[Rfam]
RNA sequence: GGCCCAACUUUGGAAUAAAUUAGAUUAGUAUGAUCAGCUGAUACUACUAAUCUAAUUUAAUCCGGAGUUGGGCCC
Number, nucleotide and partner (000 for none) at each position: 001g074002g073003c072004c071005c070006a069007a068008c067009u066010u000011u064012g063013g062014a061015a000016u059017a058018a057019a056020u055021u054022a053023g052024a000025u050026u049027a048028g047029u046030a045031u000032g000033a042034u041035c040036a000037g000038c000039u000040g035041a034042u033043a000044c000045u030046a029047c028048u027049a026050a025051u000052c023053u022054a021055a020056u019057u018058u017059a016060a000061u014062c013063c012064g011065g000066a009067g008068u007069u006070g005071g004072g003073c002074c001075c000